[Rfam]
RNA sequence: AAUAACCUUCGGGGUCGGGUGCAAUUCCCUACCGGUGGUAAUGCGCAAGCUAGCCCACGAGCCAAUUGGCAGACCUAGUGUGAUUCUAGGGCCGACGGUACAGUCCGGAAUAAAGAAGGUAUGG
Numbered sequence: 001a002a003u004a005a006c007c008u009u010c011g012g013g014g015u016c017g018g019g020u021g022c023a024a025u026u027c028c029c030u031a032c033c034g035g036u037g038g039u040a041a042u043g044c045g046c047a048a049g050c051u052a053g054c055c056c057a058c059g060a061g062c063c064a065a066u067u068g069g070c071a072g073a074c075c076u077a078g079u080g081u082g083a084u085u086c087u088a089g090g091g092c093c094g095a096c097g098g099u100a101c102a103g104u105c106c107g108g109a110a111u112a113a114a115g116a117a118g119g120u121a122u123g124g
Stems, first nucleotide, its partner, number of pairs: 005120006017029003031104002033094002035058004053092002061070003074090005096107003
The record is a 124-nucleotide RNA from a Peptococcaceae bacterium, which matches "FMN riboswitch aptamer (RFN element)" in Rfam. NCBI's taxonomy places the organism under Bacteria, Bacillota, Clostridia, Eubacteriales, Peptococcaceae.